[Rfam]
RNA sequence: CGAUAUAAAGAUGAAAGGUCCCACAAACCCAUGCUUGCAUGGUGGUUUGUGGGACCUUGAAGAUUGAACGGACAUGAGGAAGAAGCGCGAAAGCGCGGAUUCCGAAUGGACGUAGGAUUGCGAGAGCGAAGCGUAGCAAUCCGUAUAUCG
Numbered sequence: 001c002g003a004u005a006u007a008a009a010g011a012u013g014a015a016a017g018g019u020c021c022c023a024c025a026a027a028c029c030c031a032u033g034c035u036u037g038c039a040u041g042g043u044g045g046u047u048u049g050u051g052g053g054a055c056c057u058u059g060a061a062g063a064u065u066g067a068a069c070g071g072a073c074a075u076g077a078g079g080a081a082g083a084a085g086c087g088c089g090a091a092a093g094c095g096c097g098g099a100u101u102c103c104g105a106a107u108g109g110a111c112g113u114a115g116g117a118u119u120g121c122g123a124g125a126g127c128g129a130a131g132c133g134u135a136g137c138a139a140u141c142c143g144u145a146u147a148u149c150g
Stems, first nucleotide, its partner, number of pairs: 001150007009064001012061001015058014029042005068113003073108003078103004085096004115142007126132002

The family of this 150-nucleotide RNA from Butyrivibrio sp. CB08 is "Clostridiales-1 RNA". By type it is a small RNA. The base pairs follow the family's consensus structure, which is taken from published work. The organism belongs to Butyrivibrio, within Bacteria.